[Rfam]
RNA sequence: UGAAAGCAGCUAUAUAUGCCGAAGACAGUAGGUGUCGUAAGACGUAAGGAGAAAACGCCUACCGAGGAUUAAGAAUUCGUAAAUUGAGAAUCUUAAGGAGCCUCUCUGUCUUGGCAGAGAGGCUUUUCGGCUACCAUG
Numbered sequence: 001u002g003a004a005a006g007c008a009g010c011u012a013u014a015u016a017u018g019c020c021g022a023a024g025a026c027a028g029u030a031g032g033u034g035u036c037g038u039a040a041g042a043c044g045u046a047a048g049g050a051g052a053a054a055a056c057g058c059c060u061a062c063c064g065a066g067g068a069u070u071a072a073g074a075a076u077u078c079g080u081a082a083a084u085u086g087a088g089a090a091u092c093u094u095a096a097g098g099a100g101c102c103u104c105u106c107u108g109u110c111u112u113g114g115c116a117g118a119g120a121g122g123c124u125u126u127u128c129g130g131c132u133a134c135c136a137u138g
Base pairs, nucleotide, nucleotide: 028062029061030060031059032058033057034043035042036041100123101122102121103120104119105118106117107116108115109114
RNA: Ribosomal protein L10 leader